RNA sequence: GCGCCUCUCCCUCCGCCCACUCGACCGCCACGUGGCAGCCGAGCGAGCGCCUCGGGGCAGCGU
Numbered sequence: 001g002c003g004c005c006u007c008u009c010c011c012u013c014c015g016c017c018c019a020c021u022c023g024a025c026c027g028c029c030a031c032g033u034g035g036c037a038g039c040c041g042a043g044c045g046a047g048c049g050c051c052u053c054g055g056g057g058c059a060g061c062g063u
Base pairs, nucleotide, nucleotide: 001061002060005057006056007055008054015050016049018047020043021042022041023040025038028035029034